[Rfam]
RNA sequence: GGUAUUGUUUGCCCCACAUCUAAGCCCCGGAAACUUAUAUUGGUGUCGAACAAAACAAAGA
Number, nucleotide and partner (000 for none) at each position: 001g000002g000003u000004a000005u000006u057007g056008u055009u054010u053011g051012c000013c000014c000015c043016a000017c000018a040019u039020c000021u037022a036023a035024g034025c000026c000027c000028c000029g000030g000031a000032a000033a000034c024035u023036u022037a021038u000039a019040u018041u000042g000043g015044u000045g000046u000047c000048g000049a000050a000051c011052a000053a010054a009055a008056c007057a006058a000059a000060g000061a000
Shown here is a 61-nucleotide RNA sequence from Fructilactobacillus sanfranciscensis, a member of the family "Ribosomal protein L13 leader". It scores 49 bits against the family's covariance model. From the family's description: This family is a putative r-protein leader autoregulatory structure found in B. subtilis and other low-GC Gram-positive bacteria. It is located in the 5' untranslated regions of mRNAs encoding the L13-S9 (rplM-rpsI) ribosomal protein operon. For this family Rfam cites "Diverse mechanisms for regulating ribosomal protein synthesis in Escherichia coli" (Zengel and Lindahl, Prog Nucleic Acid Res Mol Biol, 1994). It is annotated as a cis-regulatory leader. NCBI's taxonomy places the organism under Bacteria, Bacilli, Lactobacillales, Fructilactobacillus, Fructilactobacillus sanfranciscensis. Pairs were carried over by alignment from the consensus structure, which was predicted with CMfinder.